[Rfam]
Overview:
Shown here is a 400-nucleotide RNA from Neurospora crassa, a member of the family "Nuclear RNase P". By type it is a ribozyme. The match comes from Rfam's covariance-model search (42 bits). The literature on the family includes a 2002 paper in Annu Rev Biochem by Xiao et al., "Eukaryotic Ribonuclease P: A Plurality of Ribonucleoprotein Enzymes".
RNA sequence: UCCUCUUCAACGCUGCGUUUCUAUGCUACGAACGGAGAGACUCGCGCAAGCGUGUCUUUCACACCUUUUCCUUCGGGAAAACACUUUCUACCAGGCAUAUGAGAAAUUCGGAGAAAUCGCUUCACUUUCAGCCUACAAUCAUCAGGUCCACCUGGUGUUUGGCUCUGCCGGCAACGGUCUGCGCGUGAUCCUCGCGUCUGUAAUUGGCAUCAGAAAAGCAGGGCGCUGAGCUCCUCUGGUCGCUUGCGAUCGGGGAUAGUUUCAGCGUUUCCUCUGGGAGGGCCAUUACGAAGCUUGUGAAUGAAAUCACUUGAGUGCAAUACGCAGCGUGCAUGCCCGUUACUCCCCUUUCGAGAGGAGGAUGGACUGCACAAUUCGAUUCCGAUUACUCUGUUGAGGA
Numbered sequence: 001u002c003c004u005c006u007u008c009a010a011c012g013c014u015g016c017g018u019u020u021c022u023a024u025g026c027u028a029c030g031a032a033c034g035g036a037g038a039g040a041c042u043c044g045c046g047c048a049a050g051c052g053u054g055u056c057u058u059u060c061a062c063a064c065c066u067u068u069u070c071c072u073u074c075g076g077g078a079a080a081a082c083a084c085u086u087u088c089u090a091c092c093a094g095g096c097a098u099a100u101g102a103g104a105a106a107u108u109c110g111g112a113g114a115a116a117u118c119g120c121u122u123c124a125c126u127u128u129c130a131g132c133c134u135a136c137a138a139u140c141a142u143c144a145g146g147u148c149c150a151c152c153u154g155g156u157g158u159u160u161g162g163c164u165c166u167g168c169c170g171g172c173a174a175c176g177g178u179c180u181g182c183g184c185g186u187g188a189u190c191c192u193c194g195c196g197u198c199u200g201u202a203a204u205u206g207g208c209a210u211c212a213g214a215a216a217a218g219c220a221g222g223g224c225g226c227u228g229a230g231c232u233c234c235u236c237u238g239g240u241c242g243c244u245u246g247c248g249a250u251c252g253g254g255g256a257u258a259g260u261u262u263c264a265g266c267g268u269u270u271c272c273u274c275u276g277g278g279a280g281g282g283c284c285a286u287u288a289c290g291a292a293g294c295u296u297g298u299g300a301a302u303g304a305a306a307u308c309a310c311u312u313g314a315g316u317g318c319a320a321u322a323c324g325c326a327g328c329g330u331g332c333a334u335g336c337c338c339g340u341u342a343c344u345c346c347c348c349u350u351u352c353g354a355g356a357g358g359a360g361g362a363u364g365g366a367c368u369g370c371a372c373a374a375u376u377c378g379a380u381u382c383c384g385a386u387u388a389c390u391c392u393g394u395u396g397a398g399g400a
Stems, first nucleotide, its partner, number of pairs: 001400004008393002012328007022099004035088005109384005119294004160174001162172003181197005203287001205285004220273003329372005